[Rfam]
RNA sequence: UGAAUGGAAAGGCAAAGCCAUCUGAAAAGUGGUGACGCAAAGCCAAGAGUCUAAGUCCAUACUGGAUAAGAUCGUCUGGCUGCCAAA
Numbered sequence: 001u002g003a004a005u006g007g008a009a010a011g012g013c014a015a016a017g018c019c020a021u022c023u024g025a026a027a028a029g030u031g032g033u034g035a036c037g038c039a040a041a042g043c044c045a046a047g048a049g050u051c052u053a054a055g056u057c058c059a060u061a062c063u064g065g066a067u068a069a070g071a072u073c074g075u076c077u078g079g080c081u082g083c084c085a086a087a
Stems, first nucleotide, its partner, number of pairs: 012038002017033004022029002041081004046077003049072003056066004
RNA: c-di-GMP-I riboswitch aptamer